[Rfam]
About this RNA: Shown here is a 139-nucleotide RNA sequence from Actinopolyspora mzabensis, a member of the family "Glycine riboswitch aptamer". The family has 44 seed sequences and 9,425 matches in Rfam 15.1.
RNA sequence: UGACGUCAUGCGGGAGAGACUCCGCACUCGGCUCGCGGCAUCGCUGCCCGGCCACGGCAAUGGCCCCAACGUGCGCGCGGAGCGCCGAAGGAGCAACACUCCCCGACAAACUCUCAGGCCCGAUCACCGCAUGGCACCA
Numbered sequence: 001u002g003a004c005g006u007c008a009u010g011c012g013g014g015a016g017a018g019a020c021u022c023c024g025c026a027c028u029c030g031g032c033u034c035g036c037g038g039c040a041u042c043g044c045u046g047c048c049c050g051g052c053c054a055c056g057g058c059a060a061u062g063g064c065c066c067c068a069a070c071g072u073g074c075g076c077g078c079g080g081a082g083c084g085c086c087g088a089a090g091g092a093g094c095a096a097c098a099c100u101c102c103c104c105g106a107c108a109a110a111c112u113c114u115c116a117g118g119c120c121c122g123a124u125c126a127c128c129g130c131a132u133g134g135c136a137c138c139a
Base pairs, nucleotide, nucleotide: 006134007133008132009131010130011129012128013127020082021081022080023079024078025077084119085118086117087115088114091113092112093111097105